[Rfam]
RNA sequence: CCUGUCGCCGAUAGGCGCGUUCGUAUAUCCUCGGGGAUCGGCCCGAGGGUCUCUACAAGGAACCGUAAAUUCCUGGCUACGAACGGGUUGCUCUUUGCC
Numbered sequence: 001c002c003u004g005u006c007g008c009c010g011a012u013a014g015g016c017g018c019g020u021u022c023g024u025a026u027a028u029c030c031u032c033g034g035g036g037a038u039c040g041g042c043c044c045g046a047g048g049g050u051c052u053c054u055a056c057a058a059g060g061a062a063c064c065g066u067a068a069a070u071u072c073c074u075g076g077c078u079a080c081g082a083a084c085g086g087g088u089u090g091c092u093c094u095u096u097g098c099c
Stems, first nucleotide, its partner, number of pairs: 018085008029048007058074005
Dot-bracket structure: .................((((((((...(((((((......))))))).........(((((.......)))))...))))))))..............
Source information:
Purine riboswitch aptamer: a 99-nucleotide sequence from Paenibacillus albicereus. Pairs were carried over by alignment from the consensus structure, which is taken from published work. A search with the family's covariance model found it, with a score of 62 bits. NCBI's taxonomy places the organism under Bacteria, Bacillota, Bacilli, Caryophanales, Paenibacillus.